Annotation:
This 107-nucleotide sequence from Prevotella sp. tf2-5 belongs to the Rfam family "Bacteroidales small SRP". Rfam classes the family as a non-coding RNA gene. The source organism's lineage runs through Bacteria, Pseudomonadati, Bacteroidota, Bacteroidales and Prevotella.
[Rfam]
RNA sequence: CAAACAUGGGCAAGUCCUGUACGGCCAGCUCCCUCGGAAUCCUCCAGGACGGGAACGUAGCAAAGGUACUUGGUUGUAGCGGCGCGAUACAGUCAGCUUGCCCACCU
Numbered sequence: 001c002a003a004a005c006a007u008g009g010g011c012a013a014g015u016c017c018u019g020u021a022c023g024g025c026c027a028g029c030u031c032c033c034u035c036g037g038a039a040u041c042c043u044c045c046a047g048g049a050c051g052g053g054a055a056c057g058u059a060g061c062a063a064a065g066g067u068a069c070u071u072g073g074u075u076g077u078a079g080c081g082g083c084g085c086g087a088u089a090c091a092g093u094c095a096g097c098u099u100g101c102c103c104a105c106c107u
Base pairs, nucleotide, nucleotide: 008103009102010101011100012099013098014097015096017092018091019090020089021088022086023085024083025082